Shown here is a 368-nucleotide RNA from Streptococcus vestibularis, a member of the family "Bacterial RNase P class B".
Taxonomically the source falls in Streptococcus (Bacteria, Bacillati, Bacilli, Streptococcaceae).
For this family Rfam cites "The Ribonuclease P Database" (Brown, Nucleic Acids Res, 1999).
It is annotated as a ribozyme.
[Rfam]
RNA sequence: AUUUUUGGAUAAUCGCAUGGUUGCUAGUCUUCCAUGAGGAAAGUCCAUGCUAGCACUGGCUGUGAUGCCAGUAGUGUUUGUGCUAGGUGAAUCAAUAAGCCUAGGGACUUGAUUUUCAAGUUACGGCGAGCGAACUAGCUAAGUCUUAGGAUAGGUUUUAGUAGCUCUGAAAGUGCCACAGUGACGGAGUUUUUAGGGAAACCUAAAAAGUGGAACGCGGUAAACCCCUCAAGCUAGCAACCCAAACUUUGGUAGGGGCAUGGGAUGGCUGGAAACGAACGGACCAUUCUGACUGCUAUGCAGUAGACAGAUGAUUAUCGAAGGAAGUGGUACCUAGUCACUUCUGGAACAAAACAUGGCUUAUAGAA
Numbered sequence: 001a002u003u004u005u006u007g008g009a010u011a012a013u014c015g016c017a018u019g020g021u022u023g024c025u026a027g028u029c030u031u032c033c034a035u036g037a038g039g040a041a042a043g044u045c046c047a048u049g050c051u052a053g054c055a056c057u058g059g060c061u062g063u064g065a066u067g068c069c070a071g072u073a074g075u076g077u078u079u080g081u082g083c084u085a086g087g088u089g090a091a092u093c094a095a096u097a098a099g100c101c102u103a104g105g106g107a108c109u110u111g112a113u114u115u116u117c118a119a120g121u122u123a124c125g126g127c128g129a130g131c132g133a134a135c136u137a138g139c140u141a142a143g144u145c146u147u148a149g150g151a152u153a154g155g156u157u158u159u160a161g162u163a164g165c166u167c168u169g170a171a172a173g174u175g176c177c178a179c180a181g182u183g184a185c186g187g188a189g190u191u192u193u194u195a196g197g198g199a200a201a202c203c204u205a206a207a208a209a210g211u212g213g214a215a216c217g218c219g220g221u222a223a224a225c226c227c228c229u230c231a232a233g234c235u236a237g238c239a240a241c242c243c244a245a246a247c248u249u250u251g252g253u254a255g256g257g258g259c260a261u262g263g264g265a266u267g268g269c270u271g272g273a274a275a276c277g278a279a280c281g282g283a284c285c286a287u288u289c290u291g292a293c294u295g296c297u298a299u300g301c302a303g304u305a306g307a308c309a310g311a312u313g314a315u316u317a318u319c320g321a322a323g324g325a326a327g328u329g330g331u332a333c334c335u336a337g338u339c340a341c342u343u344c345u346g347g348a349a350c351a352a353a354a355c356a357u358g359g360c361u362u363a364u365a366g367a368a
Base pairs, nucleotide, nucleotide: 004368005367006366007364008319009318010317011316012315013314014313016036017035018034019033020032041362042361043360045359046358047357048356049355050237051236052235053234054233055072056071057070058069059068060067078232079231080230082228083104084103085102086101087100088099105124106122107121108120109119110118111117125227126226128167129166130165131164137157138156139155143152144151145150173225174224175221176220177219190209191208192207193206194205195204196203197202241257242256243255261291262290263289264288265287266286267285292304293303294302295301296300323345324344325343326342327341328340329339330338331337